[Rfam]
RNA sequence: AACCCCAUGCUGUGACGGGGCAUGACACAGCAACCUCCCUGUUGGACUUGCCGGGCCUCGUGCCCGGCAUUUUUU
Numbered sequence: 001a002a003c004c005c006c007a008u009g010c011u012g013u014g015a016c017g018g019g020g021c022a023u024g025a026c027a028c029a030g031c032a033a034c035c036u037c038c039c040u041g042u043u044g045g046a047c048u049u050g051c052c053g054g055g056c057c058u059c060g061u062g063c064c065c066g067g068c069a070u071u072u073u074u075u
Stems, first nucleotide, its partner, number of pairs: 008032007049069008
Shown here is a 75-nucleotide RNA sequence from Dinoroseobacter shibae, a member of the family "Singlet oxygen resistance RNA X". The organism belongs to Dinoroseobacter shibae, within Bacteria. SorX (RSs2461)like SorY is a singlet oxygen induced sRNA that counteracts oxidative stress by targeting mRNA for a transporter in Rhodobacter. It also has an impact on resistance against organic hydroperoxides. It targets SD sequence of potA mRNA via an aSD sequence. The aSD sequence and some neighbouring nucleotides are identical to the one of SorY (targets takP mRNA). Rfam's curators put it in the seed alignment. The literature on the family includes a 2016 paper in RNA Biol by Peng et al., "Regulation of a polyamine transporter by the conserved 3' UTR-derived sRNA SorX confers resistance to singlet oxygen and organic hydroperoxides in Rhodobacter sphaeroides". It is annotated as a small RNA. Rfam 15.1 lists 528 matches to the family in 356 species.